[Rfam]
Annotation: Rfam assigns this 123-nucleotide RNA from Rhinolophus ferrumequinum to the family "Small nucleolar RNA SNORA25". It scores 90 bits against the family's covariance model. Pairs were carried over by alignment from the consensus structure, which was predicted with RNAfold. Its family is annotated with nucleolus and RNA processing in the Gene Ontology. The organism belongs to Rhinolophus, within Eukaryota. From the family's description: ACA25 is a member of the H/ACA class of snoRNA that guide the sites of modification of uridines to pseudouridines.

RNA sequence: AGAAUCUAAGUUGGCUUAUGGGAUCAAAACCAGGAGCUCUUAACGCUGUGACCAAAGACUGAAGUUCUCCAUAGGAUACAGUAGUCACUCAAUAGUGCUAUGUUUUCCUGAGGAGAUGUAUAA
Numbered sequence: 001a002g003a004a005u006c007u008a009a010g011u012u013g014g015c016u017u018a019u020g021g022g023a024u025c026a027a028a029a030c031c032a033g034g035a036g037c038u039c040u041u042a043a044c045g046c047u048g049u050g051a052c053c054a055a056a057g058a059c060u061g062a063a064g065u066u067c068u069c070c071a072u073a074g075g076a077u078a079c080a081g082u083a084g085u086c087a088c089u090c091a092a093u094a095g096u097g098c099u100a101u102g103u104u105u106u107c108c109u110g111a112g113g114a115g116a117u118g119u120a121u122a123a
Base pairs, nucleotide, nucleotide: 001049010041013038014037015036016035017034019033022031066116067115068114069113070112073109074108075107076106081101082100083099084098086097087096088095089094